Shown here is a 212-nucleotide RNA from Halanaerobium sp. DL-01, a member of the family "T-box leader". It is annotated as a cis-regulatory leader. The base pairs follow the family's consensus structure, which is taken from published work. The source organism's lineage runs through Bacteria, Bacillati, Clostridia, Halanaerobiaceae and Halanaerobium. Gene Ontology term of the family: tRNA binding. On this family, see Grundy et al., J Bacteriol 1994: "Interaction between the acceptor end of tRNA and the T box stimulates antitermination in the Bacillus subtilis tyrS gene: a new role for the discriminator base".
Nucleotides: 212
Stems, first nucleotide, its partner, number of pairs: 007099002015094004025082006036071003046068006102125007127138003154176005160170001181209004192205005
Number, partner (000 for none) and nucleotide at each position: 001000u002000c003000a004000a005000a006000u007099c008098c009000u010000g011000a012000g013000a014000a015094g016093g017092g018091g019000a020000g021000a022000g023000u024000a025082a026081a027080u028079u029078u030077a031000u032000u033000u034000u035000u036071a037070a038069u039000u040000a041000a042000g043000c044000g045000a046068g047067c048066u049065g050064g051063a052000g053000u054000u055000g056000g057000u058000g059000u060000g061000a062000g063051u064050c065049c066048g067047g068046u069038a070037u071036u072000a073000a074000a075000g076000a077030u078029a079028a080027a081026u082025u083000g084000a085000a086000g087000c088000g089000c090000a091018c092017c093016c094015u095000g096000g097000a098008g099007g100000a101000g102125c103124u104123u105122u106121g107120c108119u109000g110000a111000a112000u113000u114000a115000a116000g117000u118000a119108g120107g121106u122105a123104a124103a125102g126000a127138c128137a129136c130000u131000g132000a133000a134000c135000a136129g137128u138127g139000u140000u141000a142000a143000a144000g145000u146000u147000u148000u149000g150000a151000g152000u153000g154176g155175g156174c157173a158172g159000u160170u161000a162000u163000g164000a165000u166000a167000u168000c169000a170160a171000u172158c173157u174156g175155c176154c177000a178000a179000u180000u181209a182208g183207a184206g185000u186000g187000g188000u189000a190000a191000c192205a193204c194203g195202g196201g197000a198000a199000g200000u201196c202195u203194c204193g205192u206184c207183u208182c209181u210000g211000u212000u